A member of the RNA family "Small nucleolar RNA SNORD58" from Anthoscopus minutus, 71 nucleotides long. Taxonomically the source falls in Anthoscopus (Eukaryota, Euteleostomi, Amniota, Sauropsida). The family has 33 seed sequences and 2,484 matches in Rfam 15.1. Pairs were carried over by alignment from the consensus structure, which was predicted with PFOLD. Rfam's curators write: snoRNA U58 is found in introns 1, 3 and 6 of the ribosomal protein RPL17 gene in humans.
Nucleotides: 071
Stems, first nucleotide, its partner, number of pairs: 001070004
Number, partner (000 for none) and nucleotide at each position: 001070u002069u003068g004067u005000u006000g007000u008000g009000a010000u011000g012000a013000c014000u015000a016000u017000c018000u019000u020000a021000g022000c023000a024000c025000a026000c027000c028000u029000u030000u031000g032000g033000u034000a035000u036000a037000c038000c039000u040000a041000u042000g043000a044000a045000a046000u047000a048000u049000c050000c051000g052000a053000u054000a055000a056000g057000u058000u059000c060000u061000u062000u063000c064000u065000g066000a067004g068003c069002a070001a071000c